Cyano-1 RNA: a 70-nucleotide RNA from Rivularia sp. PCC 7116. Pairs were carried over by alignment from the consensus structure, which is taken from published work. Taxonomically the source falls in Rivularia (Bacteria, Bacillati, Cyanophyceae, Nostocales). It is annotated as a small RNA. Rfam 15.1 lists 283 matches to the family in 194 species.

[Rfam]
Nucleotides: 070
Base pairs, nucleotide, nucleotide: 022066023065024064025063026062027061028060032056033055034054035052036051037050
Number, partner (000 for none) and nucleotide at each position: 001000g002000u003000g004000u005000g006000u007000g008000u009000g010000a011000g012000g013000a014000g015000c016000a017000a018000a019000g020000u021000g022066a023065a024064a025063a026062g027061c028060g029000c030000u031000u032056g033055g034054g035052g036051u037050g038000g039000a040000a041000a042000c043000a044000c045000g046000g047000c048000a049000a050037c051036a052035c053000u054034c055033c056032c057000g058000a059000g060028c061027g062026c063025u064024u065023u066022u067000u068000g069000c070000u